RNA sequence: GCCUUCGAGCAUGCAGGAUUCAGGGCAGGUUUCAAACUCUACCGAAUCCUGUAGAACAUUCUUACUUUCCAGAAAUUCAUAAUCCUUUAAAAGUUUUAUGUGUAAACUCUCAAACAAUCAAGCAUAAGAGAGGAAUACAAAUCUGAAAUAAGUUAACAAAAAAAUAGUUUGAGAAGUACACAGAGACUA
Numbered sequence: 001g002c003c004u005u006c007g008a009g010c011a012u013g014c015a016g017g018a019u020u021c022a023g024g025g026c027a028g029g030u031u032u033c034a035a036a037c038u039c040u041a042c043c044g045a046a047u048c049c050u051g052u053a054g055a056a057c058a059u060u061c062u063u064a065c066u067u068u069c070c071a072g073a074a075a076u077u078c079a080u081a082a083u084c085c086u087u088u089a090a091a092a093g094u095u096u097u098a099u100g101u102g103u104a105a106a107c108u109c110u111c112a113a114a115c116a117a118u119c120a121a122g123c124a125u126a127a128g129a130g131a132g133g134a135a136u137a138c139a140a141a142u143c144u145g146a147a148a149u150a151a152g153u154u155a156a157c158a159a160a161a162a163a164a165u166a167g168u169u170u171g172a173g174a175a176g177u178a179c180a181c182a183g184a185g186a187c188u189a
Base pairs, nucleotide, nucleotide: 004185005184006183007063008062009061012053013052014051015050016049017048018047019046020045021044023042025040027038028037080098081097082096085093086092087091099182100181101180102179103178104177108174109173110172111171112170113169114168115167118129119128132144133143134142
Dot-bracket structure: ...((((((..((((((((((.(.(.((........)).).).)))))))))).......)))................(((..(((...)))..)))((((((...((((((((..((........))..(((.......)))......................))))))))..)))))))))....
Shown here is a 189-nucleotide RNA sequence from Methanosarcina acetivorans, a member of the family "Archaeal Small RNA 162". Rfam describes the family as follows. Acts on cis and trans-encoded mRNAs. The source organism's lineage runs through Archaea, Methanobacteriota, Methanosarcinaceae, Methanosarcina and Methanosarcina acetivorans.